A member of the RNA family "Small nucleolar RNA U83B" from Ornithorhynchus anatinus, 93 nucleotides long. It is annotated as a C/D-box small nucleolar RNA.
RNA sequence: GCUGUUCAGUGAUGAGGCACUGGAAAAAGCGCCGGGCACGGCGCCCGACCCCGAUGAGGAAUCCUUCCUUGCUGCCUUCCUUCUGAGAACAGC
Numbered sequence: 001g002c003u004g005u006u007c008a009g010u011g012a013u014g015a016g017g018c019a020c021u022g023g024a025a026a027a028a029g030c031g032c033c034g035g036g037c038a039c040g041g042c043g044c045c046c047g048a049c050c051c052c053g054a055u056g057a058g059g060a061a062u063c064c065u066u067c068c069u070u071g072c073u074g075c076c077u078u079c080c081u082u083c084u085g086a087g088a089a090c091a092g093c
Base pairs, nucleotide, nucleotide: 001093002092003091004090005089
U83B belongs to the C/D family of snoRNAs. The literature on the family includes a 2000 paper in Nucleic Acids Res by Jady and Kiss, "Characterisation of the U83 and U84 small nucleolar RNAs: two novel 2'-O-ribose methylation guide RNAs that lack complementarities to ribosomal RNAs". Its family is annotated with nucleolus and RNA processing in the Gene Ontology. It is one of the family's seed sequences. Lineage of the source: Eukaryota > Metazoa > Chordata > Monotremata > Ornithorhynchus.